[Rfam]
RNA sequence: GUCGGUCCUCGGUAGUGGCCACUCGGCAGGUCGUCAAACGUGACGACCGCCGGAGGGCUUCGAUCGAUGACCGCC
Numbered sequence: 001g002u003c004g005g006u007c008c009u010c011g012g013u014a015g016u017g018g019c020c021a022c023u024c025g026g027c028a029g030g031u032c033g034u035c036a037a038a039c040g041u042g043a044c045g046a047c048c049g050c051c052g053g054a055g056g057g058c059u060u061c062g063a064u065c066g067a068u069g070a071c072c073g074c075c
Stems, first nucleotide, its partner, number of pairs: 001075001003073005009067005017059003022055001023053005029048008
The family of this 75-nucleotide RNA from Rhodococcus tukisamuensis is "Actino-pnp RNA". It scores 53 bits against the family's covariance model. Lineage of the source: Bacteria > Bacillati > Actinomycetes > Nocardiaceae > Rhodococcus.